RNA sequence: AAGCUGUCCGCAUGUUCGCUGAUUCGUCAGCACAUGCCAGCAGCCAGGGUUUCAGGCUGCCGCGGGGUUCUCUCCGCGCAACCCACCAGUCCGCAUCGCAUCCAUUGCGCGGACGCGCGUCCCCAAGACGCUGAUGC
Numbered sequence: 001a002a003g004c005u006g007u008c009c010g011c012a013u014g015u016u017c018g019c020u021g022a023u024u025c026g027u028c029a030g031c032a033c034a035u036g037c038c039a040g041c042a043g044c045c046a047g048g049g050u051u052u053c054a055g056g057c058u059g060c061c062g063c064g065g066g067g068u069u070c071u072c073u074c075c076g077c078g079c080a081a082c083c084c085a086c087c088a089g090u091c092c093g094c095a096u097c098g099c100a101u102c103c104a105u106u107g108c109g110c111g112g113a114c115g116c117g118c119g120u121c122c123c124c125a126a127g128a129c130g131c132u133g134a135u136g137c
Stems, first nucleotide, its partner, number of pairs: 011036005018031005040060006047084004061078007109137003117131005

The record is a 137-nucleotide sequence from Acidovorax sp. JS42, which matches "radC RNA" in Rfam. The family's consensus secondary structure is taken from published work. The family's RNA type in Rfam is cis-regulatory element.